This 492-nucleotide part of an RNA from Chlorella variabilis belongs to the Rfam family "Eukaryotic large subunit ribosomal RNA".
A search with the family's covariance model found it, with a score of 2899 bits.
The literature on the family includes a 2001 paper in Science by Yusupov et al., "Crystal structure of the ribosome at 5.5 A resolution".

RNA sequence: CCCUCCGAAGUUUCCCCCAGGAUAGCUGGAGCUCGUUUCAGUCGACUCGGGUAAAGCGAAUGAUUAGAGGCUCAGGGGAUGAAACAUCCUCGACCUAUUCUCAAACUUUAAAUAGGGUCGUUGUCUGGGUUGCUUAAUUGAACCCAGGCCUUUAGAUGAGAGCUCCAAGUGGGCCAUUUUUGGUAAGCAGAACUGGCGAUGCGGGAUGAACCGAUAGCUGAGUUAAGGCGCCAAACUGCGCGCUAACCUAGAUCCCACAAAGGGUGUUGAUUGAUAUAGACAGCAGGACGGUGGUCAUGGAAGUCGAAAUCCGCUAAGGAGUGUGUAACAACUCACCUGCCGAAUCAAUUAGCCCCGAAAAUGGAUGGCGCUGAAGCGCGCGGCCUAUACUCAGCCAUGGGGACAAGUGCGAGGUCCCCAUGAGUAGGAGGGCGUGGGUGUCGUGGCGCAGCCUGCGGCGUGAGCCGGGGUGAAACGGCACCUAGUGCAGAU
Numbered sequence: 001c002c003c004u005c006c007g008a009a010g011u012u013u014c015c016c017c018c019a020g021g022a023u024a025g026c027u028g029g030a031g032c033u034c035g036u037u038u039c040a041g042u043c044g045a046c047u048c049g050g051g052u053a054a055a056g057c058g059a060a061u062g063a064u065u066a067g068a069g070g071c072u073c074a075g076g077g078g079a080u081g082a083a084a085c086a087u088c089c090u091c092g093a094c095c096u097a098u099u100c101u102c103a104a105a106c107u108u109u110a111a112a113u114a115g116g117g118u119c120g121u122u123g124u125c126u127g128g129g130u131u132g133c134u135u136a137a138u139u140g141a142a143c144c145c146a147g148g149c150c151u152u153u154a155g156a157u158g159a160g161a162g163c164u165c166c167a168a169g170u171g172g173g174c175c176a177u178u179u180u181u182g183g184u185a186a187g188c189a190g191a192a193c194u195g196g197c198g199a200u201g202c203g204g205g206a207u208g209a210a211c212c213g214a215u216a217g218c219u220g221a222g223u224u225a226a227g228g229c230g231c232c233a234a235a236c237u238g239c240g241c242g243c244u245a246a247c248c249u250a251g252a253u254c255c256c257a258c259a260a261a262g263g264g265u266g267u268u269g270a271u272u273g274a275u276a277u278a279g280a281c282a283g284c285a286g287g288a289c290g291g292u293g294g295u296c297a298u299g300g301a302a303g304u305c306g307a308a309a310u311c312c313g314c315u316a317a318g319g320a321g322u323g324u325g326u327a328a329c330a331a332c333u334c335a336c337c338u339g340c341c342g343a344a345u346c347a348a349u350u351a352g353c354c355c356c357g358a359a360a361a362u363g364g365a366u367g368g369c370g371c372u373g374a375a376g377c378g379c380g381c382g383g384c385c386u387a388u389a390c391u392c393a394g395c396c397a398u399g400g401g402g403a404c405a406a407g408u409g410c411g412a413g414g415u416c417c418c419c420a421u422g423a424g425u426a427g428g429a430g431g432g433c434g435u436g437g438g439u440g441u442c443g444u445g446g447c448g449c450a451g452c453c454u455g456c457g458g459c460g461u462g463a464g465c466c467g468g469g470g471u472g473a474a475a476c477g478g479c480a481c482c483u484a485g486u487g488c489a490g491a492u
Stems, first nucleotide, its partner, number of pairs: 001432006011024001013022003027167007043120006054109001055107002061103003066098001068096003075091004080086001123149009173197004178192005202213003217395005223389001227385003236382001238381001241378003262356003266353010283340005289313003295307002314318001319334001323332002396422009433487001435484010451471002457466003